[Rfam]
RNA sequence: AAAAAGGGCUUCUUUUGUGAGUGGCACACGUAGGGCAACUCACUUGCUCUGCGUGUGGAAUGGACAUUAAGAGAUUUUGGAAGCUUAGUUUUUUGGUAUCUGGGUAGCUGGUGAUCGUUGGUCCUGGAGCCCCU
Numbered sequence: 001a002a003a004a005a006g007g008g009c010u011u012c013u014u015u016u017g018u019g020a021g022u023g024g025c026a027c028a029c030g031u032a033g034g035g036c037a038a039c040u041c042a043c044u045u046g047c048u049c050u051g052c053g054u055g056u057g058g059a060a061u062g063g064a065c066a067u068u069a070a071g072a073g074a075u076u077u078u079g080g081a082a083g084c085u086u087a088g089u090u091u092u093u094u095g096g097u098a099u100c101u102g103g104g105u106a107g108c109u110g111g112u113g114a115u116c117g118u119u120g121g122u123c124c125u126g127g128a129g130c131c132c133c134u
Stems, first nucleotide, its partner, number of pairs: 008084005013026001015024003027055012056079006102132004108127004113123004
The record is a 134-nucleotide RNA from Sus scrofa, which matches "U11 spliceosomal RNA" in Rfam. The source organism's lineage runs through Eukaryota, Eumetazoa, Bilateria, Suina and Sus.